[Rfam]
RNA sequence: UACUUCGCGAGAAGUAGUCUGGAGGAAGCCCGAGAGCAAAAGUGCGAGACGACGAACAGGAACCGCAUAGAAGGCCCAGAGUGCCGAGGCGAGCUGGCACAGGACGGCAAAGCCCAUCGAACUGCUUGAAGACGUGCUGGACAGCGACAACCUGGCGCGUGCGUGGAAACGGGU
Numbered sequence: 001u002a003c004u005u006c007g008c009g010a011g012a013a014g015u016a017g018u019c020u021g022g023a024g025g026a027a028g029c030c031c032g033a034g035a036g037c038a039a040a041a042g043u044g045c046g047a048g049a050c051g052a053c054g055a056a057c058a059g060g061a062a063c064c065g066c067a068u069a070g071a072a073g074g075c076c077c078a079g080a081g082u083g084c085c086g087a088g089g090c091g092a093g094c095u096g097g098c099a100c101a102g103g104a105c106g107g108c109a110a111a112g113c114c115c116a117u118c119g120a121a122c123u124g125c126u127u128g129a130a131g132a133c134g135u136g137c138u139g140g141a142c143a144g145c146g147a148c149a150a151c152c153u154g155g156c157g158c159g160u161g162c163g164u165g166g167a168a169a170c171g172g173g174u
Base pairs, nucleotide, nucleotide: 001016002015003014004013005012006011028174029173030172031171032170037166042160043159044158045157046156048151051148064146065145066144068143075140076139079137081135082134083133085131088114089113090112093108094107095106096105
Annotation
Shown here is a 174-nucleotide RNA from Candidatus Symbiobacter mobilis, a member of the family "Group II catalytic intron D1-D4-3". Lineage of the source: Bacteria > Pseudomonadota > Betaproteobacteria > Candidatus Symbiobacter > Candidatus Symbiobacter mobilis. It scores 72 bits against the family's covariance model. For this family Rfam cites "The ins and outs of group II introns" (Bonen and Vogel, Trends Genet, 2001).